[Rfam]
RNA sequence: UCAGACUUCAUUACUGACGGAUAAUUGUGGGUAACCACAGGGGAAUGAAUGUCUCAGUUUAGCCGACCGUCUGGGCAAUAUUU
Numbered sequence: 001u002c003a004g005a006c007u008u009c010a011u012u013a014c015u016g017a018c019g020g021a022u023a024a025u026u027g028u029g030g031g032u033a034a035c036c037a038c039a040g041g042g043g044a045a046u047g048a049a050u051g052u053c054u055c056a057g058u059u060u061a062g063c064c065g066a067c068c069g070u071c072u073g074g075g076c077a078a079u080a081u082u083u
Base pairs, nucleotide, nucleotide: 003054004053005052006051007049008048009047010046011045014042015041016071017070018069019068020067027038028037029036030035060078062076063075064074

A member of the RNA family "ZMP/ZTP riboswitch aptamer (pfl RNA motif)" from Sinanaerobacter chloroacetimidivorans, 83 nucleotides long. Taxonomically the source falls in Sinanaerobacter (Bacteria, Clostridia, Peptostreptococcales, Anaerovoracaceae).